Description: Shown here is a 128-nucleotide RNA from Tupaia belangeri, a member of the family "Small nucleolar RNA SNORA61". It is annotated as an H/ACA-box small nucleolar RNA. Taxonomically the source falls in Tupaia belangeri (Eukaryota, Teleostomi, Mammalia, Eutheria). Gene Ontology terms of the family: RNA processing and nucleolus. A search with the family's covariance model found it, with a score of 99 bits. Rfam describes the family as follows. ACA61 is a member of the H/ACA class of snoRNA that guide the sites of modification of uridines to pseudouridines.
RNA sequence: ACCCUCUGGUUCCCUUUCCCAUUGGAUCUGAACCUGGUCUUGGUGGUCGCACGAGGAGGGAAAGGAACGCUGAAGCCAGCCUCUGGUGGUGUAGUCUGACUGCACCCUGAGGCUGGUUUCAGACACAC
Numbered sequence: 001a002c003c004c005u006c007u008g009g010u011u012c013c014c015u016u017u018c019c020c021a022u023u024g025g026a027u028c029u030g031a032a033c034c035u036g037g038u039c040u041u042g043g044u045g046g047u048c049g050c051a052c053g054a055g056g057a058g059g060g061a062a063a064g065g066a067a068c069g070c071u072g073a074a075g076c077c078a079g080c081c082u083c084u085g086g087u088g089g090u091g092u093a094g095u096c097u098g099a100c101u102g103c104a105c106c107c108u109g110a111g112g113c114u115g116g117u118u119u120c121a122g123a124c125a126c127a128c
Base pairs, nucleotide, nucleotide: 003059004058005057006056007055019046020045021044022043023042025039026038027037028036076116077115078114079113080112081111082110091105092104